[Rfam]
RNA sequence: GCUUGGCAGCCUGGAUGCAAAGGGUUUACCGACCAUGUCCACGGGCCGCUGGGUCUCGGUCGAUAAACCUCUGCAUCCAGAUUGUUUGGA
Number, nucleotide and partner (000 for none) at each position: 001g000002c000003u000004u000005g000006g000007c000008a000009g000010c000011c000012u000013g078014g077015a076016u000017g000018c073019a072020a000021a000022g069023g068024g000025u000026u066027u000028a064029c000030c062031g061032a060033c059034c058035a000036u000037g055038u000039c053040c000041a000042c000043g000044g000045g000046c000047c000048g000049c000050u000051g000052g000053g039054u000055c037056u000057c000058g034059g033060u032061c031062g030063a000064u028065a000066a026067a000068c023069c022070u000071c000072u019073g018074c000075a000076u015077c014078c013079a000080g000081a000082u000083u000084g000085u000086u000087u000088g000089g000090a000
Notes:
Shown here is a 90-nucleotide sequence from Pinus densata, a member of the family "MIR162_1 microRNA precursor family". The base pairs follow the family's consensus structure, which was predicted with RNAalifold.